[Rfam]
RNA: Group II catalytic intron D1-D4-2
Organism: Shigella flexneri
RNA sequence: UAUGAGAGAUGAGGGGCGGCGUCCAGACGCAGCCUUCAAACCGCCUUGAGCUGCUGCCGUUAAGAGCGGUGGUGGUGAGCGUCAAGGUUAAAAGGCGCAGAACAUGUGUCAGGU
Numbered sequence: 001u002a003u004g005a006g007a008g009a010u011g012a013g014g015g016g017c018g019g020c021g022u023c024c025a026g027a028c029g030c031a032g033c034c035u036u037c038a039a040a041c042c043g044c045c046u047u048g049a050g051c052u053g054c055u056g057c058c059g060u061u062a063a064g065a066g067c068g069g070u071g072g073u074g075g076u077g078a079g080c081g082u083c084a085a086g087g088u089u090a091a092a093a094g095g096c097g098c099a100g101a102a103c104a105u106g107u108g109u110c111a112g113g114u
Base pairs, nucleotide, nucleotide: 001011002010003009013036014035015034016033017032019030020029021028022027042113044087045086046085047084048083049082050076051075053073054072055071057069058068059067060066094110095109096108097107098106099105